Shown here is a 206-nucleotide sequence from Oryza sativa, a member of the family "MIR812 microRNA precursor family". Pairs were carried over by alignment from the consensus structure, which was predicted with RNAalifold.
[Rfam]
RNA sequence: AAAAACUCAAUUCCUGUGUUUCCGUGUCGAACGUUUAACCGUUCGUCUUAUUUGAAAAAUUUAUGAAAAAAUUAAAAAGAUAAGUCAUGUAUAAAGUAUUAUUCAUGUUUUAUCAUCUAACAAUAAUAAAAAUGCUAAUCAUAAAAAAAUUUCAUAUAAAACGGACGGUCAAACGUUGGACACGAAAACCGAAGAAUUCGGUCUUU
Numbered sequence: 001a002a003a004a005a006c007u008c009a010a011u012u013c014c015u016g017u018g019u020u021u022c023c024g025u026g027u028c029g030a031a032c033g034u035u036u037a038a039c040c041g042u043u044c045g046u047c048u049u050a051u052u053u054g055a056a057a058a059a060u061u062u063a064u065g066a067a068a069a070a071a072u073u074a075a076a077a078a079g080a081u082a083a084g085u086c087a088u089g090u091a092u093a094a095a096g097u098a099u100u101a102u103u104c105a106u107g108u109u110u111u112a113u114c115a116u117c118u119a120a121c122a123a124u125a126a127u128a129a130a131a132a133u134g135c136u137a138a139u140c141a142u143a144a145a146a147a148a149a150u151u152u153c154a155u156a157u158a159a160a161a162c163g164g165a166c167g168g169u170c171a172a173a174c175g176u177u178g179g180a181c182a183c184g185a186a187a188a189c190c191g192a193a194g195a196a197u198u199c200g201g202u203c204u205u206u
Base pairs, nucleotide, nucleotide: 027180028179030177031176032175034173035172036171038169039168040167041166042165043164044163045162046161048159049158050157051156